[Rfam]
RNA sequence: AACACAGCAGGCCAGGCAGCAUCCGAGGAGCAGGAGAAUUCUCCUGCUCCUCGGAUGCUGCCUGGCCUGCUGUGUUUU
Numbered sequence: 001a002a003c004a005c006a007g008c009a010g011g012c013c014a015g016g017c018a019g020c021a022u023c024c025g026a027g028g029a030g031c032a033g034g035a036g037a038a039u040u041c042u043c044c045u046g047c048u049c050c051u052c053g054g055a056u057g058c059u060g061c062c063u064g065g066c067c068u069g070c071u072g073u074g075u076u077u078u
Stems, first nucleotide, its partner, number of pairs: 001076012015062006022055003026051007034043002
The record is a 78-nucleotide RNA from Chiloscyllium punctatum, which matches "mir-2756 microRNA precursor family" in Rfam. Lineage of the source: Eukaryota > Metazoa > Bilateria > Elasmobranchii > Chiloscyllium.